[Rfam]
RNA sequence: UUUGAGGGGAAUGUUGUCUGGUUCUAGGCCGCUUAAGAGAAAUUAAGAUCGAGAUACUCUCUCAUCUUUUCUCUCUAUAUUGUUUCUGGAUCUCGGACCAGGCUUCAUUCCCCCCAAU
Numbered sequence: 001u002u003u004g005a006g007g008g009g010a011a012u013g014u015u016g017u018c019u020g021g022u023u024c025u026a027g028g029c030c031g032c033u034u035a036a037g038a039g040a041a042a043u044u045a046a047g048a049u050c051g052a053g054a055u056a057c058u059c060u061c062u063c064a065u066c067u068u069u070u071c072u073c074u075c076u077a078u079a080u081u082g083u084u085u086c087u088g089g090a091u092c093u094c095g096g097a098c099c100a101g102g103c104u105u106c107a108u109u110c111c112c113c114c115c116a117a118u
Base pairs, nucleotide, nucleotide: 002117003116004115006113007112008111009110010109011108012107013106016103017102018101019100020099021098024095026093027092028091
RNA: mir-166 microRNA precursor family